[Rfam]
RNA sequence: UACUAUCGCCUCUAGGGUUCCGGCUGGGCAGAAUUGCAAGCAGCGCUGGUCCGAGAGAGGCAGGCUGGCAUAGUUGUAUCUCCGUACAACGGAGCUAGCUACACGGCGGGAUAAAAGCCCGGGAGAA
Number, nucleotide and partner (000 for none) at each position: 001u000002a000003c000004u000005a000006u000007c000008g061009c060010c059011u058012c057013u000014a000015g052016g051017g000018u000019u000020c049021c048022g046023g044024c043025u042026g041027g000028g000029c000030a000031g000032a000033a000034u000035u000036g000037c000038a000039a000040g000041c026042a025043g024044c023045g000046c022047u000048g021049g020050u000051c016052c015053g000054a000055g000056a000057g012058a011059g010060g009061c008062a000063g100064g099065c098066u097067g096068g095069c094070a000071u000072a000073g000074u000075u000076g000077u000078a000079u000080c000081u000082c000083c000084g000085u000086a000087c000088a000089a000090c000091g000092g000093a000094g069095c068096u067097a066098g065099c064100u063101a000102c122103a000104c125105g000106g000107c000108g120109g119110g118111a000112u000113a000114a000115a000116a000117g000118c110119c109120c108121g000122g102123g000124a000125g104126a000127a000

The record is a 127-nucleotide RNA sequence from Cyanobacteria bacterium FACHB-502, which matches "Guanidine-I riboswitch aptamer" in Rfam. Rfam's curators write: This family represents a conserved RNA structure found upstream of the ykkC and yxkD genes in Bacillus subtilis and related genes in other bacteria. The function of this family is unclear although it has been suggested that it may function to switch on efflux pumps and detoxification systems in response to harmful environmental molecules. The organism belongs to Cyanobacteriota, within Bacteria. The pairing is the family consensus, mapped onto this sequence. For this family Rfam cites "New RNA motifs suggest an expanded scope for riboswitches in bacterial genetic control" (Barrick et al., Proc Natl Acad Sci U S A, 2004).